[Rfam]
Nucleotides: 106
Stems, first nucleotide, its partner, number of pairs: 002105007013042001015041003021032003028075002043069004048065002050061003073098001078095006
Number, partner (000 for none) and nucleotide at each position: 001000a002105a003104c004103u005102u006101a007100u008099c009000c010000a011000g012000a013042g014000u015041g016040a017039c018000c019000g020000a021032g022031g023030g024000a025000c026000a027000u028075g029074g030023c031022c032021c033000u034000a035000u036000g037000a038000c039017g040016u041015c042013c043069g044068g045067c046066a047000a048065c049064c050061c051060c052059c053000u054000a055000u056000u057000u058000u059052g060051g061050g062000a063000a064049g065048g066046u067045g068044c069043c070000a071000a072000u073098u074029c075028c076000u077000g078095c079094a080093g081092a082091a083090u084000g085000u086000u087000u088000a089000c090083a091082u092081u093080c094079u095078g096000a097000a098073a099008g100007a101006u102005a103004a104003g105002u106000c
This 106-nucleotide RNA sequence from Robertmurraya siralis belongs to the Rfam family "SAM riboswitch aptamer (S box leader)". Pairs were carried over by alignment from the consensus structure, which is taken from published work. It scores 93 bits against the family's covariance model. NCBI's taxonomy places the organism under Bacteria, Bacillota, Bacilli, Bacillaceae, Robertmurraya.